[Rfam]
Nucleotides: 066
Base pairs, nucleotide, nucleotide: 010025011024012023013022016057017056018055019054020053021052036047037046038045039044
Number, partner (000 for none) and nucleotide at each position: 001000a002000a003000g004000c005000u006000g007000a008000a009000g010025g011024g012023u013022g014000a015000u016057g017056g018055a019054g020053u021052u022013c023012a024011c025010c026000c027000g028000g029000a030000u031000c032000a033000a034000c035000c036047g037046c038045c039044c040000u041000g042000u043000c044039g045038g046037g047036c048000u049000g050000a051000u052021g053020a054019c055018u056017c057016c058000u059000g060000a061000c062000a063000g064000c065000g066000c